[Rfam]
RNA: Selenocysteine transfer RNA
Organism: Seminavis robusta
RNA sequence: GUGUGCAUGAUCCUGCCUGGUGGUGGGUGCAGGCUUCAAACCUGUGGGGGUGUGAAAGCCCAGCGGUUCAAUUCCGCCUUGCGCAC
Numbered sequence: 001g002u003g004u005g006c007a008u009g010a011u012c013c014u015g016c017c018u019g020g021u022g023g024u025g026g027g028u029g030c031a032g033g034c035u036u037c038a039a040a041c042c043u044g045u046g047g048g049g050g051u052g053u054g055a056a057a058g059c060c061c062a063g064c065g066g067u068u069c070a071a072u073u074c075c076g077c078c079u080u081g082c083g084c085a086c
Base pairs, nucleotide, nucleotide: 001086002085003084004083005082006081007080009078012027013026014025015024016023017022028046029045030044031043032042033041048061049060050059051058063077064076065075066074